[Rfam]
RNA sequence: UGACCCUUAUUAAGCCGAGGGUCACCUAGCCAACUGACGUUGUUAGUGAACCAGAUUGUUCACAAGUAUAUAAGCCAAGCGCAGCUUUUGCGGUUGGCUCUUUUUUU
Dot-bracket structure: ((((((............))))))...............((((..((((((......))))))......)))).((((.(((.......))).))))..........